[Rfam]
RNA: speF leader
Organism: Candidatus Tokpelaia sp. JSC085
RNA sequence: AUCCGGCUGAAAGGUUGGGAUACUGUAGAGGCACACCCUCAUUGCCUUCAUUGCGGAAACGGUUUUCCAAUUCCAAUCGAAAAGGCAGACAAAGUAGAACAAGACAGCUUAUUACGAGCUGUCGUGGUGUUAAGCAUAGCUUCCCU
Numbered sequence: 001a002u003c004c005g006g007c008u009g010a011a012a013g014g015u016u017g018g019g020a021u022a023c024u025g026u027a028g029a030g031g032c033a034c035a036c037c038c039u040c041a042u043u044g045c046c047u048u049c050a051u052u053g054c055g056g057a058a059a060c061g062g063u064u065u066u067c068c069a070a071u072u073c074c075a076a077u078c079g080a081a082a083a084g085g086c087a088g089a090c091a092a093a094g095u096a097g098a099a100c101a102a103g104a105c106a107g108c109u110u111a112u113u114a115c116g117a118g119c120u121g122u123c124g125u126g127g128u129g130u131u132a133a134g135c136a137u138a139g140c141u142u143c144c145c146u
Stems, first nucleotide, its partner, number of pairs: 002019007030046004053125003077089002098110002